[Rfam]
RNA sequence: CGACUUACCUGAACGGAGUCUAUGAGCGAUCAUAAAGGCUCAUGGCCUAGGACGGUGGCCUUCAUUGCACUUUGGAGGGGGUGCCGCUGUAAGGUCUCCUCAAGUAGGAGAGCCUACGUCAUAUUUUGUGGCUCCGGGGGCCUGCGUUCGCUCGGCCCCUAC
Numbered sequence: 001c002g003a004c005u006u007a008c009c010u011g012a013a014c015g016g017a018g019u020c021u022a023u024g025a026g027c028g029a030u031c032a033u034a035a036a037g038g039c040u041c042a043u044g045g046c047c048u049a050g051g052a053c054g055g056u057g058g059c060c061u062u063c064a065u066u067g068c069a070c071u072u073u074g075g076a077g078g079g080g081g082u083g084c085c086g087c088u089g090u091a092a093g094g095u096c097u098c099c100u101c102a103a104g105u106a107g108g109a110g111a112g113c114c115u116a117c118g119u120c121a122u123a124u125u126u127u128g129u130g131g132c133u134c135c136g137g138g139g140g141c142c143u144g145c146g147u148u149c150g151c152u153c154g155g156c157c158c159c160u161a162c
Stems, first nucleotide, its partner, number of pairs: 013119003016048001018046003023042005050088002053086001059079003062075002092115003095111003099107002136160004143154002146151001

The family of this 162-nucleotide RNA from Gossypium laxum is "U1 spliceosomal RNA". The organism belongs to Gossypium, within Eukaryota. Clan: U1 clan. U1 is a small nuclear RNA (snRNA) component of the spliceosome (involved in pre-mRNA splicing). A search with the family's covariance model found it, with a score of 98 bits.